Shown here is a 57-nucleotide RNA sequence from Thalassobium sp. R2A62, a member of the family "COG3860 RNA". The organism belongs to Thalassobium, within Bacteria. It is one of the family's seed sequences. Pairs were carried over by alignment from the consensus structure, which is taken from published work.

[Rfam]
RNA sequence: CGGUCCGCAGUUCACCGAGGCGUCGCCAAUCCCAGAUAGGGAUCGCUAAACCUGUUU
Numbered sequence: 001c002g003g004u005c006c007g008c009a010g011u012u013c014a015c016c017g018a019g020g021c022g023u024c025g026c027c028a029a030u031c032c033c034a035g036a037u038a039g040g041g042a043u044c045g046c047u048a049a050a051c052c053u054g055u056u057u
Stems, first nucleotide, its partner, number of pairs: 001017004030042004